[Rfam]
RNA sequence: UAUAAGGAAUGUUAGACUAAAACCGUCACGUCGUGCGACAACGUCUAACUGACCCACGUCUUGUGGG
Numbered sequence: 001u002a003u004a005a006g007g008a009a010u011g012u013u014a015g016a017c018u019a020a021a022a023c024c025g026u027c028a029c030g031u032c033g034u035g036c037g038a039c040a041a042c043g044u045c046u047a048a049c050u051g052a053c054c055c056a057c058g059u060c061u062u063g064u065g066g067g
Stems, first nucleotide, its partner, number of pairs: 011049007025039003029035001053067005
Rfam assigns this 67-nucleotide RNA from Paraliobacillus ryukyuensis to the family "Bacillaceae-1 RNA". The match comes from Rfam's covariance-model search (65 bits). It is annotated as a small RNA. The source organism's lineage runs through Bacteria, Bacillati, Bacillota, Bacilli and Paraliobacillus.